[Rfam]
RNA sequence: CAACGAUAAAGGCAAACCAAGUGAAAGCUUGGGACGCAAAGCUAUAGGGUCUUCCAUACUUGUGUAUGAUGACAGCCAGUUACCGAA
Numbered sequence: 001c002a003a004c005g006a007u008a009a010a011g012g013c014a015a016a017c018c019a020a021g022u023g024a025a026a027g028c029u030u031g032g033g034a035c036g037c038a039a040a041g042c043u044a045u046a047g048g049g050u051c052u053u054c055c056a057u058a059c060u061u062g063u064g065u066a067u068g069a070u071g072a073c074a075g076c077c078a079g080u081u082a083c084c085g086a087a
Stems, first nucleotide, its partner, number of pairs: 012037002017032006040081004047077002049073003056067004
Description
This 87-nucleotide RNA sequence from Maledivibacter halophilus belongs to the Rfam family "c-di-GMP-I riboswitch aptamer". The source organism's lineage runs through Bacteria, Bacillati, Peptostreptococcales, Caminicellaceae and Maledivibacter. Pairs were carried over by alignment from the consensus structure, which is taken from published work. From the family's description: GEMM was predicted in a large-scale screen for bacterial structured RNA regulatory elements.